[Rfam]
Nucleotides: 059
Stems, first nucleotide, its partner, number of pairs: 006053002009050004022042008
Number, partner (000 for none) and nucleotide at each position: 001000c002000c003000u004000g005000c006053g007052g008000g009050c010049c011048g012047g013000g014000c015000c016000c017000c018000u019000c020000u021000g022042a023041c024040g025039a026038u027037c028036g029035u030000u031000c032000u033000u034000g035029g036028c037027g038026a039025u040024u041023g042022u043000g044000a045000u046000g047012u048011c049010g050009g051000a052007c053006c054000g055000c056000u057000a058000u059000a

The record is a 59-nucleotide RNA sequence from Mesorhizobium opportunistum, which matches "terC RNA" in Rfam. Lineage of the source: Bacteria > Pseudomonadota > Phyllobacteriaceae > Mesorhizobium > Mesorhizobium opportunistum. By type it is a cis-regulatory element.